Annotation: The record is a 114-nucleotide sequence from Nephila pilipes, which matches "Potassium channel RNA editing signal" in Rfam. Lineage of the source: Eukaryota > Bilateria > Panarthropoda > Orbiculariae > Nephila. The base pairs follow the family's consensus structure, which is taken from published work. From the family's description: This family represents a group of sequences related to the human potassium channel Kv1.1 hairpin element which directs the efficient modification of an adenosine to inosine by an adenosine deaminase acting on RNA (ADAR). The ADAR modification causes an isoleucine/valine recoding event which lies in the ion-conducting pore of the potassium channel. It is thought that this editing event targets the process of fast inactivation and allows a more rapid recovery from inactivation at negative potentials. Rfam classes the family as a cis-regulatory element.
[Rfam]
RNA sequence: GUGGGCUACGGGGACAUGGUGCCCCGAACCUAUGUGGGCAUGCUGGUGGGUGCCUUGUGCGCCCUGGCUGGUGUGCUGACCAUCGCCUUGCCUGUGCCCGUUAUCGUGUCCAAC
Numbered sequence: 001g002u003g004g005g006c007u008a009c010g011g012g013g014a015c016a017u018g019g020u021g022c023c024c025c026g027a028a029c030c031u032a033u034g035u036g037g038g039c040a041u042g043c044u045g046g047u048g049g050g051u052g053c054c055u056u057g058u059g060c061g062c063c064c065u066g067g068c069u070g071g072u073g074u075g076c077u078g079a080c081c082a083u084c085g086c087c088u089u090g091c092c093u094g095u096g097c098c099c100g101u102u103a104u105c106g107u108g109u110c111c112a113a114c
Base pairs, nucleotide, nucleotide: 001114002113004111005110007108008107009106010105011104013102014101015100018097021095022094037077038076039075040074049063050062051061